[Rfam]
RNA sequence: UCUAGAACUCCAGAUAUGAGUAAAAUUCUAAGCAGUGUUUGAGCUGGAUUACAGGAUAGAUUCUGAUUUCUCUUUUGUGGCCAAACUUUGAAUUUGAAAACGGUAGAUUUGGGUCUUACACUAUUCAUGAACAUUGUAGGCCUAUUUCUUAGCUUUCCAUU
Dot-bracket structure: ..(.(((((..(((.(((.((.(.(.........(((...(.(.((......(((((.((.((((.((....((..((.............))..))....)))))).))..))))).)).).).)))......).).).).))).))).))..))).)..

This 161-nucleotide RNA sequence from Populus deltoides belongs to the Rfam family "MIR2912 microRNA precursor family". The family has 2 seed sequences and 15,051 matches in Rfam 15.1.